[Rfam]
RNA sequence: GCACAAGUCACAUUCUUCUUUACUAUCUCAUAGAUUUGCUCGAAGUAUGGAAUGUAAAGAAGUAUGUUCUCUGUGU
Numbered sequence: 001g002c003a004c005a006a007g008u009c010a011c012a013u014u015c016u017u018c019u020u021u022a023c024u025a026u027c028u029c030a031u032a033g034a035u036u037u038g039c040u041c042g043a044a045g046u047a048u049g050g051a052a053u054g055u056a057a058a059g060a061a062g063u064a065u066g067u068u069c070u071c072u073g074u075g076u
Stems, first nucleotide, its partner, number of pairs: 007070001010067004015062009028050005
Description: mir-1 microRNA precursor family: a 76-nucleotide sequence from Acanthosepion pharaonis. This family represents the microRNA (miRNA) mir-1 family. miRNAs are transcribed as ~70nt precursors (modelled here) and subsequently processed by the Dicer enzyme to give a ~22nt product. In this case the mature sequence comes from the 3' arm of the precursor. The extents of the hairpin precursors are not generally known and are estimated based on hairpin prediction. The products are thought to have regulatory roles through complementarity to mRNA. The involvement of Dicer in miRNA processing suggests a relationship with the phenomenon of RNA interference. miRNAs are numbered based on the sequence of the mature RNA. This family also contains the mir-206 from human, which appears to be related to mir-1. Lineage of the source: Eukaryota > Spiralia > Cephalopoda > Sepiida > Acanthosepion. A reference for the family is Lee and Ambros (2001), "An extensive class of small RNAs in Caenorhabditis elegans", Science.